[Rfam]
RNA: SAM (S-adenosyl methionine) riboswitch aptamer
Organism: Dermacoccus nishinomiyaensis
RNA sequence: GGUCACGAGCCCCGGCGCGAAGUCUCGGCUGGCCGGGCGGCAACCCCCAUGCGAACGCACACGCGCGCCGGGGUGCCCCGAGUAACGACCCGGCCGCCCGUCGACCGACGCGGCGGCAAGCGCAACGA
Numbered sequence: 001g002g003u004c005a006c007g008a009g010c011c012c013c014g015g016c017g018c019g020a021a022g023u024c025u026c027g028g029c030u031g032g033c034c035g036g037g038c039g040g041c042a043a044c045c046c047c048c049a050u051g052c053g054a055a056c057g058c059a060c061a062c063g064c065g066c067g068c069c070g071g072g073g074u075g076c077c078c079c080g081a082g083u084a085a086c087g088a089c090c091c092g093g094c095c096g097c098c099c100g101u102c103g104a105c106c107g108a109c110g111c112g113g114c115g116g117c118a119a120g121c122g123c124a125a126c127g128a
Stems, first nucleotide, its partner, number of pairs: 001090004009038001011037006021030002039077003044073003093117006099110004